Record summary: Rfam assigns this 75-nucleotide RNA from Sodalis-like symbiont of Bactericera trigonica to the family "tpke11". About the family: In Yersinia located in ICR upstream dnaJ (chaperone)gene. The literature on the family includes a 2001 paper in Curr Biol by Rivas et al., "Computational identification of noncoding RNAs in E. coli by comparative genomics". Pairs were carried over by alignment from the consensus structure, which was predicted with WAR. It scores 51 bits against the family's covariance model. Rfam links the family to the GO term response to temperature stimulus.
RNA sequence: CGCUGCGGGCAACAGGCACGGGCCGUGGGGAAAACUCUGAGCCCGUGCAAGCAUGUUGAGGGCAGGAAGAGACAA
Numbered sequence: 001c002g003c004u005g006c007g008g009g010c011a012a013c014a015g016g017c018a019c020g021g022g023c024c025g026u027g028g029g030g031a032a033a034a035c036u037c038u039g040a041g042c043c044c045g046u047g048c049a050a051g052c053a054u055g056u057u058g059a060g061g062g063c064a065g066g067a068a069g070a071g072a073c074a075a
Stems, first nucleotide, its partner, number of pairs: 002013001016048008027037003